[Rfam]
RNA sequence: GUCCCAUGCAGUCUGGAAGACUUGUGAUUUUGUUGUUCUGUGUGGCAGAACUGACAACGAGUCGCGGUCUACCUCAUUGCACUGUGAC
Numbered sequence: 001g002u003c004c005c006a007u008g009c010a011g012u013c014u015g016g017a018a019g020a021c022u023u024g025u026g027a028u029u030u031u032g033u034u035g036u037u038c039u040g041u042g043u044g045g046c047a048g049a050a051c052u053g054a055c056a057a058c059g060a061g062u063c064g065c066g067g068u069c070u071a072c073c074u075c076a077u078u079g080c081a082c083u084g085u086g087a088c
Stems, first nucleotide, its partner, number of pairs: 002087002005084002007081001009079004015073002018070005024065007032058006
This 88-nucleotide RNA from Conger conger belongs to the Rfam family "mir-7 microRNA precursor family".
A reference for the family is Lagos-Quintana et al. (2001), "Identification of novel genes coding for small expressed RNAs", Science.
The family's consensus secondary structure was predicted with PFOLD.
This family represents the microRNA (miRNA) precursor mir-7.